[Rfam]
This 123-nucleotide sequence from Castanea mollissima belongs to the Rfam family "Small nucleolar RNA SNORD14".

RNA sequence: UGUUGAUGAUGACAAAUCCAAAGGCUUGUUUCUCAAAACAUUCGCAGUGGCCGCCUAAGAGCUUUCGCCUUUGCCGGGCUUGAGAGCUGGUGCUGUUCAAUCCUUCCUUGGAUGUCUGAAACA
Numbered sequence: 001u002g003u004u005g006a007u008g009a010u011g012a013c014a015a016a017u018c019c020a021a022a023g024g025c026u027u028g029u030u031u032c033u034c035a036a037a038a039c040a041u042u043c044g045c046a047g048u049g050g051c052c053g054c055c056u057a058a059g060a061g062c063u064u065u066c067g068c069c070u071u072u073g074c075c076g077g078g079c080u081u082g083a084g085a086g087c088u089g090g091u092g093c094u095g096u097u098c099a100a101u102c103c104u105u106c107c108u109u110g111g112a113u114g115u116c117u118g119a120a121a122c123a
Base pairs, nucleotide, nucleotide: 001123002122003121004120061087062086063085064084065083066082
Source information
Taxonomically the source falls in Castanea (Eukaryota, Streptophyta, Magnoliopsida, fabids). On this family, see Samarsky et al., Nucleic Acids Res 1996: "An essential domain in Saccharomyces cerevisiae U14 snoRNA is absent in vertebrates, but conserved in other yeasts". The match comes from Rfam's covariance-model search (86 bits). U14 small nucleolar RNA (U14 snoRNA) is required for early cleavages of eukaryotic precursor rRNAs. In yeasts, this molecule possess a stem-loop region (known as the Y-domain) which is essential for function. It is annotated as a C/D-box small nucleolar RNA.